A member of the RNA family "Mammalian CPEB3 ribozyme" from Alligator mississippiensis, 73 nucleotides long. NCBI's taxonomy places the organism under Eukaryota, Eumetazoa, Teleostomi, Euteleostomi, Alligator. On this family, see Salehi-Ashtiani et al., Science 2006: "A genomewide search for ribozymes reveals an HDV-like sequence in the human CPEB3 gene". It scores 48 bits against the family's covariance model. Pairs were carried over by alignment from the consensus structure, which is taken from published work.
[Rfam]
RNA sequence: CUGCCAUAACAGCCAUAGCAGAAGCACUCGCAUUGCAGACCUGUCAGAUUCUAACGAAUCUGCAAAUUCAGCU
Numbered sequence: 001c002u003g004c005c006a007u008a009a010c011a012g013c014c015a016u017a018g019c020a021g022a023a024g025c026a027c028u029c030g031c032a033u034u035g036c037a038g039a040c041c042u043g044u045c046a047g048a049u050u051c052u053a054a055c056g057a058a059u060c061u062g063c064a065a066a067u068u069c070a071g072c073u
Base pairs, nucleotide, nucleotide: 013038017073018072019071021069022068023067024036025035026034045062046061047060048059049058050057051056